RNA sequence: CGGGAGAACCUUCGUCAAGGAACUAGGCAACAUGGCCCCGUAACUUCGGGAGAAGGGGUGCCAUACUGGGUGAUGAAAAGAGCCUGGUGUGGUCGCAGCGAAGCGGCUCUAGUGACUGGUUAACAAAACCACAGGUCUCUGCGAAGUCGAAAGACGACGUAUAGGGGCUGACGCCUGCCCAGUGCCGGAAGGUUAAGGGGAGGGGUAAGCCGCCCGAGAGGGAGGUGAAGCUCUGAACCGAAGCCCCGGUGAACGGCGGCCGUAACUAUAACGGUCCUAAGGUAGCGAAAUUCCUUGUCGGGUAAGUUCCGACCCGCACGAACGGCGUAACAACUAGAGCGGUGUCUCGACGAAGGGCCCG
Numbered sequence: 001c002g003g004g005a006g007a008a009c010c011u012u013c014g015u016c017a018a019g020g021a022a023c024u025a026g027g028c029a030a031c032a033u034g035g036c037c038c039c040g041u042a043a044c045u046u047c048g049g050g051a052g053a054a055g056g057g058g059u060g061c062c063a064u065a066c067u068g069g070g071u072g073a074u075g076a077a078a079a080g081a082g083c084c085u086g087g088u089g090u091g092g093u094c095g096c097a098g099c100g101a102a103g104c105g106g107c108u109c110u111a112g113u114g115a116c117u118g119g120u121u122a123a124c125a126a127a128a129c130c131a132c133a134g135g136u137c138u139c140u141g142c143g144a145a146g147u148c149g150a151a152a153g154a155c156g157a158c159g160u161a162u163a164g165g166g167g168c169u170g171a172c173g174c175c176u177g178c179c180c181a182g183u184g185c186c187g188g189a190a191g192g193u194u195a196a197g198g199g200g201a202g203g204g205g206u207a208a209g210c211c212g213c214c215c216g217a218g219a220g221g222g223a224g225g226u227g228a229a230g231c232u233c234u235g236a237a238c239c240g241a242a243g244c245c246c247c248g249g250u251g252a253a254c255g256g257c258g259g260c261c262g263u264a265a266c267u268a269u270a271a272c273g274g275u276c277c278u279a280a281g282g283u284a285g286c287g288a289a290a291u292u293c294c295u296u297g298u299c300g301g302g303u304a305a306g307u308u309c310c311g312a313c314c315c316g317c318a319c320g321a322a323c324g325g326c327g328u329a330a331c332a333a334c335u336a337g338a339g340c341g342g343u344g345u346c347u348c349g350a351c352g353a354a355g356g357g358c359c360c361g
Stems, first nucleotide, its partner, number of pairs: 001361004009356008018347003035059005044049001060093012094098001106340007113332002117131003134169008142159001146155003172327004177257003182254002184250005191245003197239002202234005209226002258276006277281001287314001297313006